[Rfam]
A member of the RNA family "MIR9563 microRNA precursor family" from Brassica carinata, 124 nucleotides long. The family's consensus secondary structure was predicted with RNAalifold. A search with the family's covariance model found it, with a score of 119 bits. Rfam 15.1 lists 5,832 matches to the family in 9 species.

RNA sequence: GGAAUAUAAGAAACUGUUUCUUAACUUUUAACUAAAAAAACUAAGAAUUGGUUCUUAUUAAGGUAUUUAAGAACCGGUUCUUAGUUUUUUUAGUUAAAAGUUAAGAAACAGUUUCUUAUAUUCC
Numbered sequence: 001g002g003a004a005u006a007u008a009a010g011a012a013a014c015u016g017u018u019u020c021u022u023a024a025c026u027u028u029u030a031a032c033u034a035a036a037a038a039a040a041c042u043a044a045g046a047a048u049u050g051g052u053u054c055u056u057a058u059u060a061a062g063g064u065a066u067u068u069a070a071g072a073a074c075c076g077g078u079u080c081u082u083a084g085u086u087u088u089u090u091u092a093g094u095u096a097a098a099a100g101u102u103a104a105g106a107a108a109c110a111g112u113u114u115c116u117u118a119u120a121u122u123c124c
Stems, first nucleotide, its partner, number of pairs: 001124039041084007